[Rfam]
RNA sequence: UCAGAUAUAUAGUGGACUAGGGUCCAAAAAUUUGUAAAAAGCCCCUGCUUGUAAGGGGCUUUUUUCGUUUAUGCGGUAUCAAAAUGGGCUUUAUGCCCUUUUUUC
Numbered sequence: 001u002c003a004g005a006u007a008u009a010u011a012g013u014g015g016a017c018u019a020g021g022g023u024c025c026a027a028a029a030a031u032u033u034g035u036a037a038a039a040a041g042c043c044c045c046u047g048c049u050u051g052u053a054a055g056g057g058g059c060u061u062u063u064u065u066c067g068u069u070u071a072u073g074c075g076g077u078a079u080c081a082a083a084a085u086g087g088g089c090u091u092u093a094u095g096c097c098c099u100u101u102u103u104u105c
Stems, first nucleotide, its partner, number of pairs: 038062009086098004